[Rfam]
RNA sequence: GCGAAAGUGGCGGAAUUGGGAGACGCGCUGGACUUAGGAUCCAGUCCCGCAAGGGGUGGGGGUUCGACUCCCCCCUUUCGCA
Numbered sequence: 001g002c003g004a005a006a007g008u009g010g011c012g013g014a015a016u017u018g019g020g021a022g023a024c025g026c027g028c029u030g031g032a033c034u035u036a037g038g039a040u041c042c043a044g045u046c047c048c049g050c051a052a053g054g055g056g057u058g059g060g061g062g063u064u065c066g067a068c069u070c071c072c073c074c075c076u077u078u079c080g081c082a
Stems, first nucleotide, its partner, number of pairs: 001081007010026003028044005058074005
Shown here is an 82-nucleotide sequence from candidate division Zixibacteria bacterium RBG-1, a member of the family "tRNA". The family's consensus secondary structure is taken from published work. A search with the family's covariance model found it, with a score of 59 bits. NCBI's taxonomy places the organism under Bacteria, Pseudomonadati, Candidatus Zixiibacteriota. Its family is annotated with triplet codon-amino acid adaptor activity in the Gene Ontology.